Rfam assigns this 523-nucleotide part of an RNA from Malassezia globosa to the family "Eukaryotic small subunit ribosomal RNA". A reference for the family is Yusupov et al. (2001), "Crystal structure of the ribosome at 5.5 A resolution", Science. The family is grouped with related families in Rfam's "SSU clan". Taxonomically the source falls in Malassezia globosa (Eukaryota, Malasseziomycetes, Malasseziaceae, Malassezia).

RNA sequence: CAGUUAAAAAGCUCGUAGUUGGACCUUGGGCCUGGACGGGCGGUCCGCCUCACGGCGUGUACUGUCUUGCCGGGCCUUUCCUCUUGGUGAUCUGUUGUUUCGGCAGCAGGGAACCAGGACCUUUACUUUGAAAAAAUUAGAGUGUUCAAAGCAGGCUCGACGCCGGAAUAUAUUAGCAUGGAAUAAUAAAAUAGGACGUGCGGUUCUAUUUUGUUGGUUUUUGGAAUCGCCGUAAUGAUUAAUAGGGACAGUCGGGGGCAUUAGUACUCACAUGCUAGAGGUGAAAUUCUUGGAUUUUGUGAAGACUAACUUCUGCGAAAGCAUUUGCCAAGGAUGUUUUCAUUAAUCAAGAACGAAGGUUAGGAUAUCGAAAACGAUUAGAUACCGUUGUAGUCUUAACAGUAAACUAUGCCGACUAGGGAUCGGUCGAUGUUAUCUUUUUGACUCGAUCGGCACCUUACGAGAAAUCAAAGUUUUUGGGUUCUGGGGGGAGUAUGGUCGCAAGGCUGAAACUUAAAGAAAU
Numbered sequence: 001c002a003g004u005u006a007a008a009a010a011g012c013u014c015g016u017a018g019u020u021g022g023a024c025c026u027u028g029g030g031c032c033u034g035g036a037c038g039g040g041c042g043g044u045c046c047g048c049c050u051c052a053c054g055g056c057g058u059g060u061a062c063u064g065u066c067u068u069g070c071c072g073g074g075c076c077u078u079u080c081c082u083c084u085u086g087g088u089g090a091u092c093u094g095u096u097g098u099u100u101c102g103g104c105a106g107c108a109g110g111g112a113a114c115c116a117g118g119a120c121c122u123u124u125a126c127u128u129u130g131a132a133a134a135a136a137u138u139a140g141a142g143u144g145u146u147c148a149a150a151g152c153a154g155g156c157u158c159g160a161c162g163c164c165g166g167a168a169u170a171u172a173u174u175a176g177c178a179u180g181g182a183a184u185a186a187u188a189a190a191a192u193a194g195g196a197c198g199u200g201c202g203g204u205u206c207u208a209u210u211u212u213g214u215u216g217g218u219u220u221u222u223g224g225a226a227u228c229g230c231c232g233u234a235a236u237g238a239u240u241a242a243u244a245g246g247g248a249c250a251g252u253c254g255g256g257g258g259c260a261u262u263a264g265u266a267c268u269c270a271c272a273u274g275c276u277a278g279a280g281g282u283g284a285a286a287u288u289c290u291u292g293g294a295u296u297u298u299g300u301g302a303a304g305a306c307u308a309a310c311u312u313c314u315g316c317g318a319a320a321g322c323a324u325u326u327g328c329c330a331a332g333g334a335u336g337u338u339u340u341c342a343u344u345a346a347u348c349a350a351g352a353a354c355g356a357a358g359g360u361u362a363g364g365a366u367a368u369c370g371a372a373a374a375c376g377a378u379u380a381g382a383u384a385c386c387g388u389u390g391u392a393g394u395c396u397u398a399a400c401a402g403u404a405a406a407c408u409a410u411g412c413c414g415a416c417u418a419g420g421g422a423u424c425g426g427u428c429g430a431u432g433u434u435a436u437c438u439u440u441u442u443g444a445c446u447c448g449a450u451c452g453g454c455a456c457c458u459u460a461c462g463a464g465a466a467a468u469c470a471a472a473g474u475u476u477u478u479g480g481g482u483u484c485u486g487g488g489g490g491g492a493g494u495a496u497g498g499u500c501g502c503a504a505g506g507c508u509g510a511a512a513c514u515u516a517a518a519g520a521a522a523u
Stems, first nucleotide, its partner, number of pairs: 001486003009483001011354001013352002018347003245341004249336002252333002257329004263307002268302005274296001278289003312323001315322002359400006369393001373389004411482003414475003418458003423453008432445003462469002488515003497508004